[Rfam]
A member of the RNA family "t44 RNA" from Gynuella sunshinyii, 97 nucleotides long. The organism belongs to Gynuella sunshinyii, within Bacteria. The family's RNA type in Rfam is small RNA.
Nucleotides: 097
Stems, first nucleotide, its partner, number of pairs: 022087008034078008047069005
Number, partner (000 for none) and nucleotide at each position: 001000c002000a003000u004000g005000g006000g007000a008000a009000a010000u011000a012000u013000a014000a015000c016000g017000u018000c019000a020000c021000a022087c023086a024085u025084g026083u027082a028081c029080c030000g031000a032000c033000a034078c035077u036076g037075u038074u039073u040072u041071c042000u043000g044000g045000g046000u047069g048068c049067c050066u051065u052000u053000u054000u055000c056000u057000g058000u059000a060000u061000g062000g063000a064000a065051a066050g067049g068048g069047u070000u071041g072040g073039a074038g075037g076036c077035a078034g079000g080029g081028g082027u083026a084025u085024a086023u087022g088000g089000a090000g091000g092000c093000u094000u095000a096000a097000c
Rfam's curators write: This family consists of a number of bacterial RNA genes of between 135 and 170 bases in length. The t44 gene has been identified in several species of enteric bacteria but homologs have also been identified in Pseudomonas and Coxiella species. The t44 gene is found between the map and rpsB genes in all species in the full alignment apart from Shigella flexneri.